[Rfam]
RNA sequence: GAGCUUAGCGGCUAGGGAUCCGGCACCGUCAUCGGUGCGCAGGACCGAGAGCUGCAGUCGGGGCGGGAGAAAUCCGCACCGAUGCACGGCGGGAUAAAAACCCGGGAGAU
Numbered sequence: 001g002a003g004c005u006u007a008g009c010g011g012c013u014a015g016g017g018a019u020c021c022g023g024c025a026c027c028g029u030c031a032u033c034g035g036u037g038c039g040c041a042g043g044a045c046c047g048a049g050a051g052c053u054g055c056a057g058u059c060g061g062g063g064c065g066g067g068a069g070a071a072a073u074c075c076g077c078a079c080c081g082a083u084g085c086a087c088g089g090c091g092g093g094a095u096a097a098a099a100a101c102c103c104g105g106g107a108g109a110u
Stems, first nucleotide, its partner, number of pairs: 008055005015046002020043002022040001023038006057083005063077004085105001087108001091103003
Guanidine-I riboswitch aptamer: a 110-nucleotide sequence from Kaistia soli. The organism belongs to Kaistia soli, within Bacteria. The literature on the family includes a 2004 paper in Proc Natl Acad Sci U S A by Barrick et al., "New RNA motifs suggest an expanded scope for riboswitches in bacterial genetic control".